Rfam assigns this 73-nucleotide sequence from Tupaia belangeri to the family "Small nucleolar RNA SNORD103/SNORD85". Pairs were carried over by alignment from the consensus structure. Taxonomically the source falls in Tupaia (Eukaryota, Sarcopterygii, Tetrapoda, Eutheria). For this family Rfam cites "RNomics: an experimental approach that identifies 201 candidates for novel, small, non-messenger RNAs in mouse" (Huttenhofer et al., EMBO J, 2001). Rfam's curators put it in the seed alignment.
[Rfam]
RNA sequence: ACUGGCAAGGAUGACAUGCACUUGCCCUCACUGAGACCACGGUCCAUUGCUGAGAGCGUUGUUCUGAGCCCGU
Numbered sequence: 001a002c003u004g005g006c007a008a009g010g011a012u013g014a015c016a017u018g019c020a021c022u023u024g025c026c027c028u029c030a031c032u033g034a035g036a037c038c039a040c041g042g043u044c045c046a047u048u049g050c051u052g053a054g055a056g057c058g059u060u061g062u063u064c065u066g067a068g069c070c071c072g073u
Base pairs, nucleotide, nucleotide: 001073002072004070005069006068